[Rfam]
RNA: Small nucleolar RNA SNORD26
RNA sequence: CUGCGGGGAUGAUCAUCAGGAACUCUCUCUUGCUGAUGGGUCGGUGAGGAAGCUUCUGAACAGGCUCUGAGUGGC
Numbered sequence: 001c002u003g004c005g006g007g008g009a010u011g012a013u014c015a016u017c018a019g020g021a022a023c024u025c026u027c028u029c030u031u032g033c034u035g036a037u038g039g040g041u042c043g044g045u046g047a048g049g050a051a052g053c054u055u056c057u058g059a060a061c062a063g064g065c066u067c068u069g070a071g072u073g074g075c
Base pairs, nucleotide, nucleotide: 001074002073003072004071